[Rfam]
RNA sequence: CGCUGAUAUGGGUAACUAUAUUGGUGAUUAAACAGAAGUCAGCAGACGGCAUAGUAGCCAAAUACCCAGCGUAAUGGCUGGGACACGGUGAAGGCC
Number, nucleotide and partner (000 for none) at each position: 001c026002g025003c000004u023005g022006a021007u020008a019009u018010g017011g016012g000013u000014a000015a000016c011017u010018a009019u008020a007021u006022u005023g004024g000025u002026g001027a000028u000029u000030a000031a000032a000033c000034a000035g000036a000037a000038g047039u046040c045041a000042g000043c000044a000045g040046a039047c038048g096049g095050c094051a000052u000053a000054g000055u000056a000057g089058c088059c087060a000061a000062a000063u000064a000065c000066c081067c080068a000069g000070c000071g000072u000073a000074a000075u000076g000077g000078c000079u000080g067081g066082g000083a000084c000085a000086c000087g059088g058089u057090g000091a000092a000093g000094g050095c049096c048
The family of this 96-nucleotide RNA from Oleispira antarctica is "Group II catalytic intron D1-D4-1". The pairing is the family consensus, mapped onto this sequence. Rfam 15.1 lists 2,508 matches to the family in 1,144 species. Rfam describes the family as follows. Group II introns are found in rRNA, tRNA and mRNA of organelles in fungi, plants and protists, and also in mRNA in bacteria. The source organism's lineage runs through Bacteria, Pseudomonadota, Oceanospirillales, Oceanospirillaceae and Oleispira antarctica.